[Rfam]
RNA sequence: GCUGGCAAAUGAUGUGCAAAUCUUUAUCCUACACACUCAAUGGAAUUACUGCCAUGUGUGGACAAUAAUCUCCGCUUAUUAUCUGAUGCCUGA
Numbered sequence: 001g002c003u004g005g006c007a008a009a010u011g012a013u014g015u016g017c018a019a020a021u022c023u024u025u026a027u028c029c030u031a032c033a034c035a036c037u038c039a040a041u042g043g044a045a046u047u048a049c050u051g052c053c054a055u056g057u058g059u060g061g062a063c064a065a066u067a068a069u070c071u072c073c074g075c076u077u078a079u080u081a082u083c084u085g086a087u088g089c090c091u092g093a
Stems, first nucleotide, its partner, number of pairs: 004090004
Background
The family of this 93-nucleotide RNA sequence from Panicum miliaceum is "Small nucleolar RNA R16". The family's consensus secondary structure was predicted with PFOLD.